Small nucleolar RNA SNORA79: a 143-nucleotide RNA sequence from Octodon degus.

[Rfam]
RNA sequence: UGAUGACUGUUCCUCCUAUUGCCUUGAGGCCUGGCACUAGGAUUUUAAGUCAUCAUAAAUUGACAUUUGAUUUUCUUCACUCAGAGAACAUGUGAUAAUGGGAUUAUCUGUCUGUUCUCUGACAUUUGCGGAAUCAAACACUU
Numbered sequence: 001u002g003a004u005g006a007c008u009g010u011u012c013c014u015c016c017u018a019u020u021g022c023c024u025u026g027a028g029g030c031c032u033g034g035c036a037c038u039a040g041g042a043u044u045u046u047a048a049g050u051c052a053u054c055a056u057a058a059a060u061u062g063a064c065a066u067u068u069g070a071u072u073u074u075c076u077u078c079a080c081u082c083a084g085a086g087a088a089c090a091u092g093u094g095a096u097a098a099u100g101g102g103a104u105u106a107u108c109u110g111u112c113u114g115u116u117c118u119c120u121g122a123c124a125u126u127u128g129c130g131g132a133a134u135c136a137a138a139c140a141c142u143u
Base pairs, nucleotide, nucleotide: 001055002054003053004052005051006050007049008048014042015041016040017039018038020036021035022034023033069135070134071133072132073131074130081122082121083120084119085118086117087116088115089114090113094108095107096106097105
Dot-bracket structure: ((((((((.....(((((.((((.........)))).))))).....)))))))).............((((((......((((((((((...((((.......))))....)))))))))).......))))))........

The family's consensus secondary structure was predicted with RNAalifold. The literature on the family includes a 2006 paper in RNA by Schattner et al., "A computational screen for mammalian pseudouridylation guide H/ACA RNAs". ACA65 (SNORA79) is a member of the H/ACA class of snoRNAs that guide the sites of modification of uridines to pseudouridines. This snoRNA was identified by computational screening and its expression in mouse experimentally verified by Northern blot and primer extension analysis.